[Rfam]
RNA sequence: CCGUUGGUUCCGUACUUCCUUACGUCCCAUAGUGUUUUAAGUCGUAUGGAAUGUAAAGAAGUAUGGAGCAGACGU
Numbered sequence: 001c002c003g004u005u006g007g008u009u010c011c012g013u014a015c016u017u018c019c020u021u022a023c024g025u026c027c028c029a030u031a032g033u034g035u036u037u038u039a040a041g042u043c044g045u046a047u048g049g050a051a052u053g054u055a056a057a058g059a060a061g062u063a064u065g066g067a068g069c070a071g072a073c074g075u
Stems, first nucleotide, its partner, number of pairs: 007069012020056006027049005
RNA: mir-1 microRNA precursor family